RNA sequence: UGGUCAGAUUUAGCACAAGCGGUUACUCCCACCCAUCAGACUGCAGAUACCUAUAUUGAGGUUUGAGACCUAUGGGUGCUUUCUGACCCUUUU
Numbered sequence: 001u002g003g004u005c006a007g008a009u010u011u012a013g014c015a016c017a018a019g020c021g022g023u024u025a026c027u028c029c030c031a032c033c034c035a036u037c038a039g040a041c042u043g044c045a046g047a048u049a050c051c052u053a054u055a056u057u058g059a060g061g062u063u064u065g066a067g068a069c070c071u072a073u074g075g076g077u078g079c080u081u082u083c084u085g086a087c088c089c090u091u092u093u
Stems, first nucleotide, its partner, number of pairs: 002088006013077002016074001019073001021071002027067001029065001031063001
This 93-nucleotide RNA sequence from Cervus elaphus belongs to the Rfam family "Vault RNA". Taxonomically the source falls in Cervus elaphus (Eukaryota, Deuterostomia, Theria, Boreoeutheria). This family of RNAs are found as part of the enigmatic vault ribonucleoprotein complex. The base pairs follow the family's consensus structure, which is taken from published work. It scores 50 bits against the family's covariance model.